[Rfam]
RNA sequence: AAGUAUACUUUGAAGGAAAUAAGUAAUAUUGUUAAUGCUUUUCAGAGAGUAAGUCGGUUGGUGCGAGGCUUAUAGUAUAAUAAUAUGAAAUACGAUUCUGGAGUAUCUAUAGGAAACUAUAGCGGGUAACUGAACGUUAUUCAGUCUGAGGCACUUGAUAGAGUGUAAAAUAAGGUGGUACCACGGUUAUUUCGUCCUUUAG
Numbered sequence: 001a002a003g004u005a006u007a008c009u010u011u012g013a014a015g016g017a018a019a020u021a022a023g024u025a026a027u028a029u030u031g032u033u034a035a036u037g038c039u040u041u042u043c044a045g046a047g048a049g050u051a052a053g054u055c056g057g058u059u060g061g062u063g064c065g066a067g068g069c070u071u072a073u074a075g076u077a078u079a080a081u082a083a084u085a086u087g088a089a090a091u092a093c094g095a096u097u098c099u100g101g102a103g104u105a106u107c108u109a110u111a112g113g114a115a116a117c118u119a120u121a122g123c124g125g126g127u128a129a130c131u132g133a134a135c136g137u138u139a140u141u142c143a144g145u146c147u148g149a150g151g152c153a154c155u156u157g158a159u160a161g162a163g164u165g166u167a168a169a170a171u172a173a174g175g176u177g178g179u180a181c182c183a184c185g186g187u188u189a190u191u192u193c194g195u196c197c198u199u200u201a202g
Stems, first nucleotide, its partner, number of pairs: 007104002015099004026086006038075002050072006107122006123136002151166006172199004183195004